[Rfam]
RNA sequence: GUACCUAAAUCUUACCCAUUUCUUGCUGCUUCGUGCUGCUGUGGAGACAGAUGGUUCUACGGUAUGAGCAGAGGAAAUCCAGAAAGGUUGCUUUUCAUUUAUCUUGGAGCCUGUCUCUACAGCUCUGCCACAUUU
Numbered sequence: 001g002u003a004c005c006u007a008a009a010u011c012u013u014a015c016c017c018a019u020u021u022c023u024u025g026c027u028g029c030u031u032c033g034u035g036c037u038g039c040u041g042u043g044g045a046g047a048c049a050g051a052u053g054g055u056u057c058u059a060c061g062g063u064a065u066g067a068g069c070a071g072a073g074g075a076a077a078u079c080c081a082g083a084a085a086g087g088u089u090g091c092u093u094u095u096c097a098u099u100u101a102u103c104u105u106g107g108a109g110c111c112u113g114u115c116u117c118u119a120c121a122g123c124u125c126u127g128c129c130a131c132a133u134u135u
Base pairs, nucleotide, nucleotide: 001057003055004054005053013047016044017043018042019041022038068128069127070126071125072124073123081116082115083114085112086111087110088109095107096106097105